[Rfam]
RNA sequence: ACGCAGGAAAGGAGGUGGUCCUGAAGUGAAGGCUUUUAGGACUUGCGAGGUGUCCGCCCGCUAGGGCGCACCCGAGCGGUUCGCACCGGCGAAUCCACAGCGGACACCCGAACCCCCGGGAGGCCGGACCUAGUCCGACCGGCCCCGCCGUCCCACGGCGGAGGAACCCCGGGGGUUCGCCAUGC
Numbered sequence: 001a002c003g004c005a006g007g008a009a010a011g012g013a014g015g016u017g018g019u020c021c022u023g024a025a026g027u028g029a030a031g032g033c034u035u036u037u038a039g040g041a042c043u044u045g046c047g048a049g050g051u052g053u054c055c056g057c058c059c060g061c062u063a064g065g066g067c068g069c070a071c072c073c074g075a076g077c078g079g080u081u082c083g084c085a086c087c088g089g090c091g092a093a094u095c096c097a098c099a100g101c102g103g104a105c106a107c108c109c110g111a112a113c114c115c116c117c118g119g120g121a122g123g124c125c126g127g128a129c130c131u132a133g134u135c136c137g138a139c140c141g142g143c144c145c146c147g148c149c150g151u152c153c154c155a156c157g158g159c160g161g162a163g164g165a166a167c168c169c170c171g172g173g174g175g176u177u178c179g180c181c182a183u184g185c
Stems, first nucleotide, its partner, number of pairs: 014058005059091004064086001066084003072078001109179012123143005
Shown here is a 185-nucleotide RNA from Nocardiopsis composta, a member of the family "Actinobacteria sRNA Ms_IGR-5".
Pairs were carried over by alignment from the consensus structure.
Lineage of the source: Bacteria > Bacillati > Actinomycetota > Actinomycetes > Nocardiopsis.
It scores 77 bits against the family's covariance model.
The literature on the family includes a 2013 paper in RNA by Li et al., "Identification of small RNAs in Mycobacterium smegmatis using heterologous Hfq".